[Rfam]
RNA sequence: UAACUGGACUUCUGUUGCGUAUGGCACAUAGAGUGGGGAAACCUCAGUCUUUCUCCAUUCUCUGUGAAACUGACAUAAAGAGAUUCUGGAGGCACAAAUUUUACUCUUGCAUAUGUUGAUAGUCAGGUCUGCUGUUUCAUAA
Numbered sequence: 001u002a003a004c005u006g007g008a009c010u011u012c013u014g015u016u017g018c019g020u021a022u023g024g025c026a027c028a029u030a031g032a033g034u035g036g037g038g039a040a041a042c043c044u045c046a047g048u049c050u051u052u053c054u055c056c057a058u059u060c061u062c063u064g065u066g067a068a069a070c071u072g073a074c075a076u077a078a079a080g081a082g083a084u085u086c087u088g089g090a091g092g093c094a095c096a097a098a099u100u101u102u103a104c105u106c107u108u109g110c111a112u113a114u115g116u117u118g119a120u121a122g123u124c125a126g127g128u129c130u131g132c133u134g135u136u137u138c139a140u141a142a
Stems, first nucleotide, its partner, number of pairs: 009092004013026005027064002030061012065088002068085002071082001113140003118136005124131002
The family of this 142-nucleotide sequence from Dromaius novaehollandiae is "U11 spliceosomal RNA". By type it is a spliceosomal small nuclear RNA. A reference for the family is Marz et al. (2008), "Evolution of spliceosomal snRNA genes in metazoan animals", J Mol Evol. Taxonomically the source falls in Dromaius (Eukaryota, Eumetazoa, Chordata, Dipnotetrapodomorpha).